[Rfam]
RNA sequence: CCGUGCUAGAUGGGGAGGUAGCGGUGCCUUGUAACUUGCAAUCCGCUGUAGCAAGAUUGAAGUCCAUCUAAGGGAUACCAUUGUUGAGUCUGCCCAUGAAAAGUGGUGUUGAUAAUUGGGUCCUGCGCAAUAGACACUUAUGAACUCCGUCAGAUCUGGAAGGAAGCAGCGGUAAGUGAGAAAGUUUAUGUGCCGCAGGGGUUCCUGGUUUGAGCUAACUGUUGUGGUAACGUCCGUAGUAGUAUUUCGAAGUUGGAUGCACGG
Numbered sequence: 001c002c003g004u005g006c007u008a009g010a011u012g013g014g015g016a017g018g019u020a021g022c023g024g025u026g027c028c029u030u031g032u033a034a035c036u037u038g039c040a041a042u043c044c045g046c047u048g049u050a051g052c053a054a055g056a057u058u059g060a061a062g063u064c065c066a067u068c069u070a071a072g073g074g075a076u077a078c079c080a081u082u083g084u085u086g087a088g089u090c091u092g093c094c095c096a097u098g099a100a101a102a103g104u105g106g107u108g109u110u111g112a113u114a115a116u117u118g119g120g121u122c123c124u125g126c127g128c129a130a131u132a133g134a135c136a137c138u139u140a141u142g143a144a145c146u147c148c149g150u151c152a153g154a155u156c157u158g159g160a161a162g163g164a165a166g167c168a169g170c171g172g173u174a175a176g177u178g179a180g181a182a183a184g185u186u187u188a189u190g191u192g193c194c195g196c197a198g199g200g201g202u203u204c205c206u207g208g209u210u211u212g213a214g215c216u217a218a219c220u221g222u223u224g225u226g227g228u229a230a231c232g233u234c235c236g237u238a239g240u241a242g243u244a245u246u247u248c249g250a251a252g253u254u255g256g257a258u259g260c261a262c263g264g
Base pairs, nucleotide, nucleotide: 001264002263003262004261005260006259009058010057011056012030013029014028015027017025019023035055036054037053038052039051063257064256065255066254068252069251072248073247074246075245076244078242080240081239082238083237084236086234087233091229092228095226096225097224098223099222103219104218105216106215107214114210115209116208117207118206119205120204122199123198124197125196126195127194128190129189131188132187133186134185135184137180138179139178140177141176147172148171149170150169155164156163157162
A member of the RNA family "Bacterial large signal recognition particle RNA" from Fusibacter sp. 3D3, 264 nucleotides long. Taxonomically the source falls in Fusibacter (Bacteria, Bacillati, Bacillota, Eubacteriales). About the family: The signal recognition particle (SRP) is a universally conserved ribonucleoprotein involved in the co-translational targeting of proteins to membranes. The base pairs follow the family's consensus structure, which is taken from published work.